FMN riboswitch aptamer (RFN element): a 114-nucleotide RNA from Clostridium botulinum. Rfam's curators put it in the seed alignment.
RNA sequence: AGUAUCCUUCAGGGUUGGGUGAAAUUCCCUAUCGGCGGUAUAGCCCGCAAGCCAUAAGGCAGAUUCGGUUAAAUUCCGAAGCCGACAGUAUAGUCUGGAUGAAAGAAGGUAAAU
Numbered sequence: 001a002g003u004a005u006c007c008u009u010c011a012g013g014g015u016u017g018g019g020u021g022a023a024a025u026u027c028c029c030u031a032u033c034g035g036c037g038g039u040a041u042a043g044c045c046c047g048c049a050a051g052c053c054a055u056a057a058g059g060c061a062g063a064u065u066c067g068g069u070u071a072a073a074u075u076c077c078g079a080a081g082c083c084g085a086c087a088g089u090a091u092a093g094u095c096u097g098g099a100u101g102a103a104a105g106a107a108g109g110u111a112a113a114u
Stems, first nucleotide, its partner, number of pairs: 003112001006109005017029003031094002033084002035048004043082002051060002064080005086097003